RNA sequence: ACGUCACGAUUAAUGAGGCGUUCAUCCUGAGCUAUCAGGCUCUGAACGGGGAGCAUGUCAUCGCCGUGCUGAGCACGCAGCGAACUCCUGCAAAAACUCAACAUAACCCUCGCCCUGCUACACAUUAUCUGACG
Numbered sequence: 001a002c003g004u005c006a007c008g009a010u011u012a013a014u015g016a017g018g019c020g021u022u023c024a025u026c027c028u029g030a031g032c033u034a035u036c037a038g039g040c041u042c043u044g045a046a047c048g049g050g051g052a053g054c055a056u057g058u059c060a061u062c063g064c065c066g067u068g069c070u071g072a073g074c075a076c077g078c079a080g081c082g083a084a085c086u087c088c089u090g091c092a093a094a095a096a097c098u099c100a101a102c103a104u105a106a107c108c109c110u111c112g113c114c115c116u117g118c119u120a121c122a123c124a125u126u127a128u129c130u131g132a133c134g
Stems, first nucleotide, its partner, number of pairs: 002134004008129002011127005019048006049089004061083004065077005
Dot-bracket structure: .((((..((.(((((...((((((..................))))))((((........(((((((((...)))))..))))..)))).................................))))))).))))

This 134-nucleotide RNA sequence from Xenorhabdus szentirmaii belongs to the Rfam family "EFASI RNA". NCBI's taxonomy places the organism under Bacteria, Gammaproteobacteria, Enterobacterales, Morganellaceae, Xenorhabdus szentirmaii. By type it is a small RNA.